RNA sequence: GCUCAGCAUCAAGAGUUGGGGCGACGCCCAACGCCAACCUGCCAUCCCGGGCAAGGUGGUGCUCCUGCAAAGGAGGAUGUGGCCUGAUCGGCAAUUAUGCGGAUGCAG
Numbered sequence: 001g002c003u004c005a006g007c008a009u010c011a012a013g014a015g016u017u018g019g020g021g022c023g024a025c026g027c028c029c030a031a032c033g034c035c036a037a038c039c040u041g042c043c044a045u046c047c048c049g050g051g052c053a054a055g056g057u058g059g060u061g062c063u064c065c066u067g068c069a070a071a072g073g074a075g076g077a078u079g080u081g082g083c084c085u086g087a088u089c090g091g092c093a094a095u096u097a098u099g100c101g102g103a104u105g106c107a108g
Stems, first nucleotide, its partner, number of pairs: 006080005015032006033060003038056003041052003047102003082092003